RNA: Pseudomonas sRNA P27
RNA sequence: CGGGUUUACUCCUGGAUAUUACCGUUGGUCCGACCGAAGCCGGACGACGUUUGGUGUCUGAUUCGGUAUGAAUCGGGAGCACCAUCUGCGUAGGUUUGGAAAUCCUUUUUUAAGGCUUGCGCCACCUACGGUCUUGGAUAGCCCCCGCCAGGCAGGGACCCCAAUAGUUGCGAGCGACGGUGAACCGGCGCCCGA
Dot-bracket structure: .((((((...((((........((...(((((.(....).)))))..))..(((((((((((((.....)))))))..))))))...(((..((((............(((((((((............))))))))).))))..)))))))...))))))................(((((......))).)).